Rfam assigns this 292-nucleotide RNA from Fusarium austroafricanum to the family "Fungal signal recognition particle RNA".
It is annotated as a non-coding RNA gene.
The literature on the family includes a 2002 paper in Nucleic Acids Res by Regalia et al., "Prediction of signal recognition particle RNA genes".
Rfam links the family to the GO terms signal recognition particle, endoplasmic reticulum targeting, SRP-dependent cotranslational protein targeting to membrane, signal sequence recognition and signal recognition particle, plasma membrane targeting.
The family is grouped with related families in Rfam's "SRP clan".

RNA sequence: GACUGUAAUGGUCUAACGGUGAAGGCGCUCAAACCCGCUCAACCGCCCAUCCCAAUACUGAAGUACUUGUACCUCAGCCCUCCGCCGCGCCCCGCCCGAACGCUGCGGUGGCCGCCCACUCGUGCAGGUAACUCACGAUGCUGGAACAUUUGCGGCCCUAAGCACUGGAGAUGACCCUUGAGGGAGGUUUCACUCUGCAGAGAUCUCUCCCCCGUCGCGUGGCGGGUGGGAACACGUUAGUGCGGAGGGAUUUGGGAUGGAAAGUGGAUGAGAUGGAGCAGUCGACUGUCUU
Numbered sequence: 001g002a003c004u005g006u007a008a009u010g011g012u013c014u015a016a017c018g019g020u021g022a023a024g025g026c027g028c029u030c031a032a033a034c035c036c037g038c039u040c041a042a043c044c045g046c047c048c049a050u051c052c053c054a055a056u057a058c059u060g061a062a063g064u065a066c067u068u069g070u071a072c073c074u075c076a077g078c079c080c081u082c083c084g085c086c087g088c089g090c091c092c093c094g095c096c097c098g099a100a101c102g103c104u105g106c107g108g109u110g111g112c113c114g115c116c117c118a119c120u121c122g123u124g125c126a127g128g129u130a131a132c133u134c135a136c137g138a139u140g141c142u143g144g145a146a147c148a149u150u151u152g153c154g155g156c157c158c159u160a161a162g163c164a165c166u167g168g169a170g171a172u173g174a175c176c177c178u179u180g181a182g183g184g185a186g187g188u189u190u191c192a193c194u195c196u197g198c199a200g201a202g203a204u205c206u207c208u209c210c211c212c213c214g215u216c217g218c219g220u221g222g223c224g225g226g227u228g229g230g231a232a233c234a235c236g237u238u239a240g241u242g243c244g245g246a247g248g249g250a251u252u253u254g255g256g257a258u259g260g261a262a263a264g265u266g267g268a269u270g271a272g273a274u275g276g277a278g279c280a281g282u283c284g285a286c287u288g289u290c291u292u
Stems, first nucleotide, its partner, number of pairs: 001013003017288004023282001027279004032274001036270002039267003044264001047260009059076003063072003080247003083242003087237003091230008100220004105215004112144003116140001118139001120138005126133002158162001167210005177202003184195003